A member of the RNA family "CpoB/ybgF ICR thermometer" from Budvicia aquatica, 138 nucleotides long. A reference for the family is Righetti et al. (2016), "Temperature-responsive in vitro RNA structurome of Yersinia pseudotuberculosis", Proc Natl Acad Sci U S A. A search with the family's covariance model found it, with a score of 108 bits. Its family is annotated with regulation of translation and response to temperature stimulus in the Gene Ontology. The base pairs follow the family's consensus structure. The source organism's lineage runs through Bacteria, Gammaproteobacteria, Enterobacterales, Budviciaceae and Budvicia. By type it is an RNA thermoregulator. About the family: Imprinting control region from upstream of cpoB/ybgF (tol/pal system protein).
RNA sequence: CAAAUCGCUAUCGUAUCUUACGGUAAAGAGAAGCCAGCAGUGCUAGGCCAUGACGAAGCAGCGUUUGCUAAAAACCGUCGUGCAGUACUGGUUUACUAAGAGAAAAAUAUGAACAGUAAUUUCAGAUAUCAUGUAUUA
Numbered sequence: 001c002a003a004a005u006c007g008c009u010a011u012c013g014u015a016u017c018u019u020a021c022g023g024u025a026a027a028g029a030g031a032a033g034c035c036a037g038c039a040g041u042g043c044u045a046g047g048c049c050a051u052g053a054c055g056a057a058g059c060a061g062c063g064u065u066u067g068c069u070a071a072a073a074a075c076c077g078u079c080g081u082g083c084a085g086u087a088c089u090g091g092u093u094u095a096c097u098a099a100g101a102g103a104a105a106a107a108u109a110u111g112a113a114c115a116g117u118a119a120u121u122u123c124a125g126a127u128a129u130c131a132u133g134u135a136u137u138a
Base pairs, nucleotide, nucleotide: 002044006040013034014033016031017030018029019028053137056134058132061129064126065125066124067123074117075116077114078112079111080110081109082108086104088102089101
Dot-bracket structure: .(...(......((.((((........)))).)).....)...)........(..(.(..(..((((......((.((((((...(.((...........)).)...))))).).)).....))))..)..).)..).